[Rfam]
RNA sequence: CGGGUUGACUCUGGAGAGCGGCGGAUUUACCGCCCACCGACGGGGCAGGCGCGGAUUGCGCCCAAACUCUCAGGUACCAGGACAGAGGGGCGGGA
Numbered sequence: 001c002g003g004g005u006u007g008a009c010u011c012u013g014g015a016g017a018g019c020g021g022c023g024g025a026u027u028u029a030c031c032g033c034c035c036a037c038c039g040a041c042g043g044g045g046c047a048g049g050c051g052c053g054g055a056u057u058g059c060g061c062c063c064a065a066a067c068u069c070u071c072a073g074g075u076a077c078c079a080g081g082a083c084a085g086a087g088g089g090g091c092g093g094g095a
Base pairs, nucleotide, nucleotide: 006090009087010086011085012084013083020034021033022032023031036075037074038073039071040070043069044068045067049061050060051059052058053057
A member of the RNA family "Glycine riboswitch aptamer" from Thiolapillus brandeum, 95 nucleotides long. It scores 57 bits against the family's covariance model. The organism belongs to Thiolapillus, within Bacteria.